[Rfam]
RNA sequence: GAGCAAUAAUGAAAAGGUUUUACUACUGAUCUUUAUAAUUGUGAAGGUUUCAACAUUUGAUCUGAGCUCA
Numbered sequence: 001g002a003g004c005a006a007u008a009a010u011g012a013a014a015a016g017g018u019u020u021u022a023c024u025a026c027u028g029a030u031c032u033u034u035a036u037a038a039u040u041g042u043g044a045a046g047g048u049u050u051c052a053a054c055a056u057u058u059g060a061u062c063u064g065a066g067c068u069c070a
Base pairs, nucleotide, nucleotide: 001069002068003067004066013034014033015032016031017030018029019028